The record is a 92-nucleotide RNA sequence from Variovorax gossypii, which matches "Selenocysteine transfer RNA" in Rfam. The family's consensus secondary structure is taken from published work.
RNA sequence: GGAGGGAGAUCGCCCCUGGUGGGGCGGCCGGGCUUCAAACCCGGUUGGUGGCGCCAGCCGUCGCCGGGAAGGUUCGACUCCUUCCUUCCUCC
Dot-bracket structure: ((((((((..((((((....))))))((((((.......)))))).(((((.........)))))...((((.......)))).))))))))